RNA sequence: UUCUUAUCAAGAGAAGCUGAGGGAUCUGGCCCAAUGAAGCUUCAGCAACCCCUGAUCCUGUCAGGAAGGUGCUGCCUCCAACAAGAUGUCUGUCUUGAGAGAUAAGAG
Numbered sequence: 001u002u003c004u005u006a007u008c009a010a011g012a013g014a015a016g017c018u019g020a021g022g023g024a025u026c027u028g029g030c031c032c033a034a035u036g037a038a039g040c041u042u043c044a045g046c047a048a049c050c051c052c053u054g055a056u057c058c059u060g061u062c063a064g065g066a067a068g069g070u071g072c073u074g075c076c077u078c079c080a081a082c083a084a085g086a087u088g089u090c091u092g093u094c095u096u097g098a099g100a101g102a103u104a105a106g107a108g
Stems, first nucleotide, its partner, number of pairs: 001108008013043005021032003027080003044073004049069002051065004077100001082097006
The family of this 108-nucleotide sequence from Sporosarcina limicola is "SAM riboswitch aptamer (S box leader)". The organism belongs to Sporosarcina, within Bacteria.